[Rfam]
Rfam assigns this 77-nucleotide RNA sequence from Allobosea sp. PAMC 26642 to the family "Makes More Granules Regulator RNA (mmgR)". The family's RNA type in Rfam is small RNA. Clan: suhB sRNA clan. Taxonomically the source falls in Allobosea (Bacteria, Pseudomonadota, Hyphomicrobiales, Alloboseaceae).
RNA sequence: CUUCGUUGCCCUCCUUGGGCGUUUCCUCCCUAGACUUGGGCCGCCACGCAAGUGUGCGGCCCUUUUUUCUGGCCUGC
Numbered sequence: 001c002u003u004c005g006u007u008g009c010c011c012u013c014c015u016u017g018g019g020c021g022u023u024u025c026c027u028c029c030c031u032a033g034a035c036u037u038g039g040g041c042c043g044c045c046a047c048g049c050a051a052g053u054g055u056g057c058g059g060c061c062c063u064u065u066u067u068u069c070u071g072g073c074c075u076g077c
Stems, first nucleotide, its partner, number of pairs: 008020004038062007045054002
Dot-bracket structure: .......((((.....)))).................(((((((((......)).)))))))...............